The family of this 85-nucleotide RNA from Opisthocomus hoazin is "Selenocysteine transfer RNA".

[Rfam]
RNA sequence: GCCUGGGUGACCCUCAGUGGUCUGAGAUGCAGGUUUCAAACUGUAGCUGUCUGGCGACAGAGUGGUUCAUUUCCAACUUUCGGGC
Numbered sequence: 001g002c003c004u005g006g007g008u009g010a011c012c013c014u015c016a017g018u019g020g021u022c023u024g025a026g027a028u029g030c031a032g033g034u035u036u037c038a039a040a041c042u043g044u045a046g047c048u049g050u051c052u053g054g055c056g057a058c059a060g061a062g063u064g065g066u067u068c069a070u071u072u073c074c075a076a077c078u079u080u081c082g083g084g085c
Stems, first nucleotide, its partner, number of pairs: 001085007009077001013026005028045005047060005063075003

Taxonomically the source falls in Opisthocomus (Eukaryota, Bilateria, Dipnotetrapodomorpha, Coelurosauria).